The family of this 122-nucleotide RNA sequence from Corynebacterium sp. sy039 is "atpB RNA". The match comes from Rfam's covariance-model search (126 bits). Pairs were carried over by alignment from the consensus structure, which is taken from published work.
RNA sequence: CUGUUGUUACCGUGCUGAUGUGCGACGGAAUCCAUGGUGAUGACAGUGAGAUUUUAGACGUCCAUCGCACCGUGAAAUUUUUUCACGGCCCGAACACGGGAGAGAACGCUGAGCGUUAUAAC
Numbered sequence: 001c002u003g004u005u006g007u008u009a010c011c012g013u014g015c016u017g018a019u020g021u022g023c024g025a026c027g028g029a030a031u032c033c034a035u036g037g038u039g040a041u042g043a044c045a046g047u048g049a050g051a052u053u054u055u056a057g058a059c060g061u062c063c064a065u066c067g068c069a070c071c072g073u074g075a076a077a078u079u080u081u082u083u084c085a086c087g088g089c090c091c092g093a094a095c096a097c098g099g100g101a102g103a104g105a106a107c108g109c110u111g112a113g114c115g116u117u118a119u120a121a122c
Stems, first nucleotide, its partner, number of pairs: 001046012070088008